[Rfam]
RNA: Small nucleolar RNA SNORA77
RNA sequence: GCAGACUCACUCUGUUCUUUGCUGUUCUCUCCAGUCUUGAACUUUUUCUGUCUGCUAUAUUAAUUGUCAGAGUAUAUCAACUACUAGCUUUUUUCUGAAAAGCUGGUGCUGAUAUGUUCUGCAACACAUUA
Numbered sequence: 001g002c003a004g005a006c007u008c009a010c011u012c013u014g015u016u017c018u019u020u021g022c023u024g025u026u027c028u029c030u031c032c033a034g035u036c037u038u039g040a041a042c043u044u045u046u047u048c049u050g051u052c053u054g055c056u057a058u059a060u061u062a063a064u065u066g067u068c069a070g071a072g073u074a075u076a077u078c079a080a081c082u083a084c085u086a087g088c089u090u091u092u093u094u095c096u097g098a099a100a101a102g103c104u105g106g107u108g109c110u111g112a113u114a115u116g117u118u119c120u121g122c123a124a125c126a127c128a129u130u131a
Stems, first nucleotide, its partner, number of pairs: 001055006014042004022034003068121012082108009
Dot-bracket structure: ((((((.......((((....(((.......)))....)))).......))))))............((((((((((((..(((((((((.........))))))))).))))))))))))..........